[Rfam]
RNA sequence: UACCCCAUCCAUUCGGGGUAACCCUAUUGUGACUAGCGUGAAUGGCAACGUUUGGGUUAGAAAGCUCACAAGACAAUGUGGAAAUCCGAGUAGCCUAAAACUGGGACAACUGCUAGGGUAAGAAAGCUAUGGAGAACAUAAAGUGAAUCAC
Dot-bracket structure: .(((((........)))))........((((((((((.((((((....)))))).))))).....)))))...............((.(((........))).))....((....))........(((.((.......)).))).......
RNA: Group II catalytic intron D1-D4-7